[Rfam]
RNA: DABA-DC-AT RNA
RNA sequence: GCAAUCUCGGUAGUACCUUACUGGGGGAUACUCGAAACAUCCUCUUAAAUUGGUGAUGUUUUGUAGGGUAGGUAUUAGUUAGCCAUAGCUAAUAGACGGGAUACUGUAGAAAGGAAACCCAACA
Numbered sequence: 001g002c003a004a005u006c007u008c009g010g011u012a013g014u015a016c017c018u019u020a021c022u023g024g025g026g027g028a029u030a031c032u033c034g035a036a037a038c039a040u041c042c043u044c045u046u047a048a049a050u051u052g053g054u055g056a057u058g059u060u061u062u063g064u065a066g067g068g069u070a071g072g073u074a075u076u077a078g079u080u081a082g083c084c085a086u087a088g089c090u091a092a093u094a095g096a097c098g099g100g101a102u103a104c105u106g107u108a109g110a111a112a113g114g115a116a117a118c119c120c121a122a123c124a
Stems, first nucleotide, its partner, number of pairs: 006025006033063007042053002073094009